Background
A member of the RNA family "c-di-GMP-I riboswitch aptamer" from Bacillus sp. MUM 13, 83 nucleotides long.
[Rfam]
RNA sequence: UCUAGAGAAAAGCAAACUUUCCGAAAGGAUAGGACGCAAAGCCGCAGAUCUAAGGCAAAUGCUAAGAUGGCUGGGCUGCCACA
Numbered sequence: 001u002c003u004a005g006a007g008a009a010a011a012g013c014a015a016a017c018u019u020u021c022c023g024a025a026a027g028g029a030u031a032g033g034a035c036g037c038a039a040a041g042c043c044g045c046a047g048a049u050c051u052a053a054g055g056c057a058a059a060u061g062c063u064a065a066g067a068u069g070g071c072u073g074g075g076c077u078g079c080c081a082c083a
Stems, first nucleotide, its partner, number of pairs: 012037002017032002020029003040077004045073003048068003055062002